Rfam assigns this 108-nucleotide RNA sequence from Beijerinckiaceae bacterium RH AL1 to the family "EcpR1". For this family Rfam cites "A stress-induced small RNA modulates alpha-rhizobial cell cycle progression" (Robledo et al., PLoS Genet, 2015). Rfam's curators write: Perviously named SmelC291, SmrC10, or Sra33. The match comes from Rfam's covariance-model search (98 bits). Rfam classes the family as a small RNA. Lineage of the source: Bacteria > Pseudomonadati > Pseudomonadota > Hyphomicrobiales > Beijerinckiaceae.
RNA sequence: AUACCCUACGGAGUGCUCAGGUCCGCCGCAUCUCCUGGGUCCGUGGGGUCGGCCGGCUGGCGGGUGGUGAGGAGUGGCCUCCUCGCACCAUCCGCCGCCGGCCACCAU
Numbered sequence: 001a002u003a004c005c006c007u008a009c010g011g012a013g014u015g016c017u018c019a020g021g022u023c024c025g026c027c028g029c030a031u032c033u034c035c036u037g038g039g040u041c042c043g044u045g046g047g048g049u050c051g052g053c054c055g056g057c058u059g060g061c062g063g064g065u066g067g068u069g070a071g072g073a074g075u076g077g078c079c080u081c082c083u084c085g086c087a088c089c090a091u092c093c094g095c096c097g098c099c100g101g102c103c104a105c106c107a108u
Stems, first nucleotide, its partner, number of pairs: 003049008016039006051103007059096003